[Rfam]
Rfam assigns this 61-nucleotide sequence from Pseudomonas sp. HLS-6 to the family "Pseudomonas sRNA P36".
The organism belongs to Pseudomonas, within Bacteria.
The family's consensus secondary structure was predicted with RNAalifold.
For this family Rfam cites "Identification of 17 Pseudomonas aeruginosa sRNAs and prediction of sRNA-encoding genes in 10 diverse pathogens using the bioinformatic tool sRNAPredict2" (Livny et al., Nucleic Acids Res, 2006).
Nucleotides: 061
Base pairs, nucleotide, nucleotide: 006031007030008029009028010027011026013025037061038060039059040058041057043055046053047052
Number, partner (000 for none) and nucleotide at each position: 001000c002000a003000g004000a005000c006031u007030g008029u009028u010027a011026c012000c013025g014000c015000a016000a017000c018000a019000u020000g021000a022000a023000g024000a025013c026011g027010u028009a029008a030007c031006a032000a033000a034000a035000a036000c037061c038060g039059g040058g041057g042000c043055u044000u045000a046053c047052g048000g049000u050000a051000a052047c053046g054000a055043a056000a057041c058040c059039c060038c061037g